[Rfam]
Annotation
Bacteroidales small SRP: a 108-nucleotide RNA from Pedobacter cryoconitis. Clan: SRP clan.
RNA sequence: UUGCAGUGGGCAAGUCCUUUACGAUCAGCUCCCUUUGAACUCCCCCAGGGCGGGAACGAAGCAAGGGUAGAAGGUUGUAGCGGUGCGAUAAAGGUUGCUUGCCCAUUU
Numbered sequence: 001u002u003g004c005a006g007u008g009g010g011c012a013a014g015u016c017c018u019u020u021a022c023g024a025u026c027a028g029c030u031c032c033c034u035u036u037g038a039a040c041u042c043c044c045c046c047a048g049g050g051c052g053g054g055a056a057c058g059a060a061g062c063a064a065g066g067g068u069a070g071a072a073g074g075u076u077g078u079a080g081c082g083g084u085g086c087g088a089u090a091a092a093g094g095u096u097g098c099u100u101g102c103c104c105a106u107u108u
Stems, first nucleotide, its partner, number of pairs: 008104008017093005022087002024084002
About this RNA
Lineage of the source: Bacteria > Bacteroidota > Sphingobacteriia > Sphingobacteriales > Pedobacter.